[Rfam]
Source information:
Rfam assigns this 130-nucleotide sequence from Leptobrachium leishanense to the family "Small nucleolar RNA SNORA68". The base pairs follow the family's consensus structure, which was predicted with PFOLD. Taxonomically the source falls in Leptobrachium (Eukaryota, Eumetazoa, Bilateria, Megophryidae). From the family's description: U68 is a member of the H/ACA class of small nucleolar RNAs (snoRNAs) which act as guides in the the modification of uridines to pseudouridines.

RNA sequence: UGCACACAUAACCCAAAGUUCAUUAACCUUUCUGUGUAAUGAUCUUGUCUGAUGUGCACAAAUAAUCUGCAUCCUGUCGCCUUCCAUGGACUGACGUGUCUGUGAAAGUGAAUACUGAGAUGCUACAUGU
Numbered sequence: 001u002g003c004a005c006a007c008a009u010a011a012c013c014c015a016a017a018g019u020u021c022a023u024u025a026a027c028c029u030u031u032c033u034g035u036g037u038a039a040u041g042a043u044c045u046u047g048u049c050u051g052a053u054g055u056g057c058a059c060a061a062a063u064a065a066u067c068u069g070c071a072u073c074c075u076g077u078c079g080c081c082u083u084c085c086a087u088g089g090a091c092u093g094a095c096g097u098g099u100c101u102g103u104g105a106a107a108g109u110g111a112a113u114a115c116u117g118a119g120a121u122g123c124u125a126c127a128u129g130u
Stems, first nucleotide, its partner, number of pairs: 001058006018044001020042006026035002069123005075117001081108003085104007